[Rfam]
RNA sequence: AAAAAGGGUGCUUACCUAUCCCUAAUGGUACACUCAUUGAAAUUCCCCUAAAGGGAUGGUGGGUGGGGUAUGGCCAUCAAGACAUACCCAGCACGUAAUUUUUGGACCUGGGACAGUUGAUGAUGCAUCGGCGUCCCC
Numbered sequence: 001a002a003a004a005a006g007g008g009u010g011c012u013u014a015c016c017u018a019u020c021c022c023u024a025a026u027g028g029u030a031c032a033c034u035c036a037u038u039g040a041a042a043u044u045c046c047c048c049u050a051a052a053g054g055g056a057u058g059g060u061g062g063g064u065g066g067g068g069u070a071u072g073g074c075c076a077u078c079a080a081g082a083c084a085u086a087c088c089c090a091g092c093a094c095g096u097a098a099u100u101u102u103u104g105g106a107c108c109u110g111g112g113a114c115a116g117u118u119g120a121u122g123a124u125g126c127a128u129c130g131g132c133g134u135c136c137c138c
Base pairs, nucleotide, nucleotide: 008094009093010092011091012090013030014029015028016027031065032064033063034062035061036060037059038058066089067088068087069086070085071084072083111136112135113134114133116132117131118130119129120128121127122126
A member of the RNA family "U11 spliceosomal RNA" from Daphnia magna, 138 nucleotides long. A search with the family's covariance model found it, with a score of 79 bits. Clan: U1 clan. The base pairs follow the family's consensus structure, which is taken from published work.